c-di-AMP riboswitch aptamer (ydaO/yuaA leader): a 128-nucleotide sequence from Tissierella sp. P1. The pairing is the family consensus, mapped onto this sequence. The source organism's lineage runs through Bacteria, Bacillota, Tissierellales, Tissierellaceae and Tissierella. Its family is annotated with regulation of gene expression and cyclic-di-AMP binding in the Gene Ontology. The family has 106 seed sequences and 7,607 matches in Rfam 15.1. A search with the family's covariance model found it, with a score of 90 bits.
RNA sequence: UAAAUCACAUCGCUGAAUUCUUAAAUGAAGCGGGGGACCCAAUCUUCGGGGGUGUAUCCAUUUUUGGAGGGGUAGAACCCUUUAGCCUAACCCGACAGCUAACCUCGUAAGCGUGUAAAGGGGAGUAA
Numbered sequence: 001u002a003a004a005u006c007a008c009a010u011c012g013c014u015g016a017a018u019u020c021u022u023a024a025a026u027g028a029a030g031c032g033g034g035g036g037a038c039c040c041a042a043u044c045u046u047c048g049g050g051g052g053u054g055u056a057u058c059c060a061u062u063u064u065u066g067g068a069g070g071g072g073u074a075g076a077a078c079c080c081u082u083u084a085g086c087c088u089a090a091c092c093c094g095a096c097a098g099c100u101a102a103c104c105u106c107g108u109a110a111g112c113g114u115g116u117a118a119a120g121g122g123g124a125g126u127a128a
Stems, first nucleotide, its partner, number of pairs: 011113004018029003030108006040049001050093003058067003070087002073084001